This 86-nucleotide RNA from Ziziphus jujuba belongs to the Rfam family "small nucleolar RNA snoR114". Taxonomically the source falls in Ziziphus (Eukaryota, Tracheophyta, Rhamnaceae, Paliureae). The base pairs follow the family's consensus structure, which was predicted with RNAalifold. For this family Rfam cites "Mining small RNA sequencing data: a new approach to identify small nucleolar RNAs in Arabidopsis" (Chen and Wu, Nucleic Acids Res, 2009). By type it is a C/D-box small nucleolar RNA. Its family is annotated with nucleolus and RNA processing in the Gene Ontology.
RNA sequence: GAGCUAUGAGGAUUCUUGCGCCCCUGUGAUGGUGGGGUCCAUCAUGAUCAACUGAUUUGCGGAUGAAAUCGGGCGCUUCUGAGCUC
Numbered sequence: 001g002a003g004c005u006a007u008g009a010g011g012a013u014u015c016u017u018g019c020g021c022c023c024c025u026g027u028g029a030u031g032g033u034g035g036g037g038u039c040c041a042u043c044a045u046g047a048u049c050a051a052c053u054g055a056u057u058u059g060c061g062g063a064u065g066a067a068a069u070c071g072g073g074c075g076c077u078u079c080u081g082a083g084c085u086c
Stems, first nucleotide, its partner, number of pairs: 001086004